[Rfam]
RNA: Small nucleolar RNA SNORA42/SNORA80 family
RNA sequence: AAAAGUACAAUACAUAUGGCAAGUCUAUCCCCCUGGGCCUUUCAUAGUGUCCCAUGCCAGGGCACACUGUGGUCCCAAACCAUUGCCUGGCUUCUGUGUGCUUAGGCUGCUGGUACUGAAAUGGGUUGCACAGUG
Number, nucleotide and partner (000 for none) at each position: 001a000002a055003a000004a000005g051006u000007a000008c000009a000010a000011u000012a000013c000014a000015u046016a045017u044018g043019g042020c000021a040022a000023g038024u036025c035026u000027a000028u000029c000030c000031c000032c000033c000034u000035g025036g024037g000038c023039c000040u021041u000042u019043c018044a017045u016046a015047g000048u000049g000050u000051c005052c000053c000054a000055u002056g000057c000058c000059a000060g000061g000062g000063c000064a000065c000066a000067c000068u000069g000070u128071g127072g126073u125074c124075c123076c000077a000078a000079a000080c000081c118082a117083u000084u000085g000086c113087c112088u109089g108090g107091c106092u105093u104094c000095u000096g000097u000098g000099u000100g000101c000102u000103u000104a093105g092106g091107c090108u089109g088110c000111u000112g087113g086114u000115a000116c000117u082118g081119a000120a000121a000122u000123g075124g074125g073126u072127u071128g070129c000130a000131c000132a000133g000134u000135g000